azaaromatic riboswitch aptamer (yjdF RNA): a 100-nucleotide RNA from Actinomyces graevenitzii. Pairs were carried over by alignment from the consensus structure, which is taken from published work. Taxonomically the source falls in Actinomyces graevenitzii (Bacteria, Bacillati, Actinomycetota, Actinomyces).

[Rfam]
RNA sequence: GGCAUCGGAGAUGAAAAACAGCCCGUCGGGUAGUCAUGGGCGUGCGGGAGCCCGCAUCAGUAACCUGCCUCCUCGGUUGUCCCUUCUUUGCAUGGUCGUC
Numbered sequence: 001g002g003c004a005u006c007g008g009a010g011a012u013g014a015a016a017a018a019c020a021g022c023c024c025g026u027c028g029g030g031u032a033g034u035c036a037u038g039g040g041c042g043u044g045c046g047g048g049a050g051c052c053c054g055c056a057u058c059a060g061u062a063a064c065c066u067g068c069c070u071c072c073u074c075g076g077u078u079g080u081c082c083c084u085u086c087u088u089u090g091c092a093u094g095g096u097c098g099u100c
Stems, first nucleotide, its partner, number of pairs: 006090006021041006042057006067077003
Dot-bracket structure: .....((((((.........((((((.........))))))((((((....)))))).........(((.....))).......))))))..........